This 94-nucleotide RNA sequence from Vibrio galatheae belongs to the Rfam family "Glycine riboswitch aptamer". About the family: This family represents the bacterial glycine riboswitch. It scores 63 bits against the family's covariance model.
RNA sequence: CCUCUGGAGAGAACCGUACUACUUUGUAGUAGCAAGCGGUCGCCGAAGGAGCAAGCCUAUCAAUAGGUGAAACUCUCAGGCAAAAGGACAGAGG
Numbered sequence: 001c002c003u004c005u006g007g008a009g010a011g012a013a014c015c016g017u018a019c020u021a022c023u024u025u026g027u028a029g030u031a032g033c034a035a036g037c038g039g040u041c042g043c044c045g046a047a048g049g050a051g052c053a054a055g056c057c058u059a060u061c062a063a064u065a066g067g068u069g070a071a072a073c074u075c076u077c078a079g080g081c082a083a084a085a086g087g088a089c090a091g092a093g094g
Stems, first nucleotide, its partner, number of pairs: 001094006013040004042081003045077002049075003055068002